[Rfam]
RNA sequence: CUUGAUCGAGCCCAGCAGCAGUGGCGUUGACCGAUCCUGCCCAUAGGUCGCCAGCAGCGCCUGCGCCUC
Numbered sequence: 001c002u003u004g005a006u007c008g009a010g011c012c013c014a015g016c017a018g019c020a021g022u023g024g025c026g027u028u029g030a031c032c033g034a035u036c037c038u039g040c041c042c043a044u045a046g047g048u049c050g051c052c053a054g055c056a057g058c059g060c061c062u063g064c065g066c067c068u069c
Base pairs, nucleotide, nucleotide: 015019025065026064027063032059033058037054038053039052041050043048
The record is a 69-nucleotide RNA sequence from Actinoplanes awajinensis, which matches "ASpks TB sRNA" in Rfam. NCBI's taxonomy places the organism under Bacteria, Actinomycetota, Actinomycetes, Actinoplanes, Actinoplanes awajinensis.